Description: The family of this 185-nucleotide sequence from Nocardioides caeni is "Actinobacteria sRNA Ms_IGR-5". The match comes from Rfam's covariance-model search (105 bits). Pairs were carried over by alignment from the consensus structure. The family's RNA type in Rfam is small RNA.
[Rfam]
RNA sequence: ACACGGGAAAGGAGGUGGUCCGAAGAAUGAUUUCUCAUCGGAUGCGUGAGGUGGCUGCCCGCUAGCAGCCCAGCAGUUGAACUCCCGGCUGCGACGCGAAACCACAGCAGCCCCCCGACCCGCAGGUGAGCCCGGACCAUCCACCGGGCCCGGUCCUCCCGGACCACACCUGCGGGUCGCUGCUU
Number, nucleotide and partner (000 for none) at each position: 001a000002c000003a000004c000005g000006g000007g000008a000009a000010a000011g000012g000013a000014g059015g058016u057017g056018g055019u054020c000021c000022g000023a000024a000025g000026a000027a000028u000029g000030a000031u000032u000033u000034c000035u000036c000037a000038u000039c000040g000041g000042a000043u000044g000045c000046g000047u000048g000049a000050g000051g000052u000053g000054g019055c018056u017057g016058c015059c014060c098061g097062c096063u094064a000065g092066c091067a000068g089069c088070c087071c000072a000073g084074c000075a000076g000077u000078u000079g000080a000081a000082c000083u000084c073085c000086c000087g070088g069089c068090u000091g066092c065093g000094a063095c000096g062097c061098g060099a000100a000101a000102c000103c000104a000105c000106a000107g000108c000109a000110g000111c000112c000113c000114c000115c000116c179117g178118a177119c176120c175121c174122g173123c172124a171125g170126g169127u168128g167129a000130g149131c148132c147133c146134g145135g144136a000137c000138c000139a000140u000141c000142c000143a000144c135145c134146g133147g132148g131149c130150c000151c000152g000153g000154u000155c000156c000157u000158c000159c000160c000161g000162g000163a000164c000165c000166a000167c128168a127169c126170c125171u124172g123173c122174g121175g120176g119177u118178c117179g116180c000181u000182g000183c000184u000185u000